[Rfam]
RNA sequence: UUAUGCCACAAGGUAUCUGAUGUUCAACCUAAGACAAAUGGUUGAGUGUCUCGUUUAAAGUGGCAAAUAUUGAUAAAACAGGCCUUGCGACACAGGUUGCUCAUGCAAUGCGUCUCCUGUUACUAUUUUCCUGUUGACAUCU
Numbered sequence: 001u002u003a004u005g006c007c008a009c010a011a012g013g014u015a016u017c018u019g020a021u022g023u024u025c026a027a028c029c030u031a032a033g034a035c036a037a038a039u040g041g042u043u044g045a046g047u048g049u050c051u052c053g054u055u056u057a058a059a060g061u062g063g064c065a066a067a068u069a070u071u072g073a074u075a076a077a078a079c080a081g082g083c084c085u086u087g088c089g090a091c092a093c094a095g096g097u098u099g100c101u102c103a104u105g106c107a108a109u110g111c112g113u114c115u116c117c118u119g120u121u122a123c124u125a126u127u128u129u130c131c132u133g134u135u136g137a138c139a140u141c142u
Base pairs, nucleotide, nucleotide: 004065005064006063007062008061009060019050020049021048022047023046024045025044026043027042028041029040031039077135078134079133080132081131092120093119094118095117096116099113100112
RNA: Small nucleolar RNA F1/F2/snoR5a
Organism: Dioscorea zingiberensis